[Rfam]
RNA sequence: GCGGUUCCGGUUCCCGCCCCCCUGGUCUCCAGGCUGACAGAGGCGAUCCGGCGACC
Numbered sequence: 001g002c003g004g005u006u007c008c009g010g011u012u013c014c015c016g017c018c019c020c021c022c023u024g025g026u027c028u029c030c031a032g033g034c035u036g037a038c039a040g041a042g043g044c045g046a047u048c049c050g051g052c053g054a055c056c
Base pairs, nucleotide, nucleotide: 003056004055005054007051008050009049010048015045016044017043018042020040
A member of the RNA family "L31-Actinobacteria ribosomal protein leader" from Herbidospora galbida, 56 nucleotides long. A search with the family's covariance model found it, with a score of 39 bits. Rfam classes the family as a cis-regulatory leader.